[Rfam]
RNA sequence: UGUUAAGCGAAGUUGGUUUGUGACCGUCACUAACGGGCAGUGAUUAUAUUUUGCUCGUUUUGACGAUCGCAAAAUGAACUCACUUGAC
Numbered sequence: 001u002g003u004u005a006a007g008c009g010a011a012g013u014u015g016g017u018u019u020g021u022g023a024c025c026g027u028c029a030c031u032a033a034c035g036g037g038c039a040g041u042g043a044u045u046a047u048a049u050u051u052u053g054c055u056c057g058u059u060u061u062g063a064c065g066a067u068c069g070c071a072a073a074a075u076g077a078a079c080u081c082a083c084u085u086g087a088c
Stems, first nucleotide, its partner, number of pairs: 003087005009081002013077003017073007025065002032059008

Description
mir-274 microRNA precursor family: an 88-nucleotide RNA from Papilio machaon. Pairs were carried over by alignment from the consensus structure, which was predicted with RNAalifold. Taxonomically the source falls in Papilio (Eukaryota, Allotriocarida, Pterygota, Papilioninae). On this family, see Lai et al., Genome Biol 2003: "Computational identification of Drosophila microRNA genes". Gene Ontology terms of the family: RISC complex and miRNA-mediated post-transcriptional gene silencing.